Rfam assigns this 145-nucleotide RNA from Scaptodrosophila lebanonensis to the family "Small nucleolar RNA psi28S-1192". The family's RNA type in Rfam is H/ACA-box small nucleolar RNA.
RNA sequence: UAUUCGUCCACUCUAAUUCUUCGUCAUGUCAUUAGGAUAUUGUCGUAGUCUCGCUUGUGGACCAGAUUAAUCUAAUUUCUUUUAUUAUCCUUGUGCUUGUGGCAAUUCCCAGCUCAGUGCACACGAGAAACGUAGAAGAACAGUC
Numbered sequence: 001u002a003u004u005c006g007u008c009c010a011c012u013c014u015a016a017u018u019c020u021u022c023g024u025c026a027u028g029u030c031a032u033u034a035g036g037a038u039a040u041u042g043u044c045g046u047a048g049u050c051u052c053g054c055u056u057g058u059g060g061a062c063c064a065g066a067u068u069a070a071u072c073u074a075a076u077u078u079c080u081u082u083u084a085u086u087a088u089c090c091u092u093g094u095g096c097u098u099g100u101g102g103c104a105a106u107u108c109c110c111a112g113c114u115c116a117g118u119g120c121a122c123a124c125g126a127g128a129a130a131c132g133u134a135g136a137a138g139a140a141c142a143g144u145c
Stems, first nucleotide, its partner, number of pairs: 006062005019048002022045002025042002027039004078139008090127006
Annotation:
psi28S-1192 is a member of the H/ACA class of snoRNA. This family is responsible for guiding the modification of uridine 1192 to pseudouridine in Drosophila 28S rRNA. The organism belongs to Scaptodrosophila, within Eukaryota. The match comes from Rfam's covariance-model search (128 bits).